Shown here is a 130-nucleotide RNA from Penicillium egyptiacum, a member of the family "U4 spliceosomal RNA". The family has 177 seed sequences and 32,178 matches in Rfam 15.1. U4 small nuclear RNA (U4 snRNA) is a component of the major U2-dependent spliceosome.
RNA sequence: AUCCUAGUGCAUGGGCUUUACACGUAUCAGUGAGGAGAAAUCCGAGAUCGUGUUUUUGCUGGUUGAAAACUACCCUGACCACUUCAAGCAAGCCUAAUCGCAUGCUUAGGAAUUUUUGAAACCAUACUGU
Numbered sequence: 001a002u003c004c005u006a007g008u009g010c011a012u013g014g015g016c017u018u019u020a021c022a023c024g025u026a027u028c029a030g031u032g033a034g035g036a037g038a039a040a041u042c043c044g045a046g047a048u049c050g051u052g053u054u055u056u057u058g059c060u061g062g063u064u065g066a067a068a069a070c071u072a073c074c075c076u077g078a079c080c081a082c083u084u085c086a087a088g089c090a091a092g093c094c095u096a097a098u099c100g101c102a103u104g105c106u107u108a109g110g111a112a113u114u115u116u117u118g119a120a121a122c123c124a125u126a127c128u129g130u
Base pairs, nucleotide, nucleotide: 020053021052022051023050024049026048027047028046034043035042036041083110084109086107087106088105089104090103092101093100
Its Rfam clan is "U4 clan". Rfam classes the family as a spliceosomal small nuclear RNA.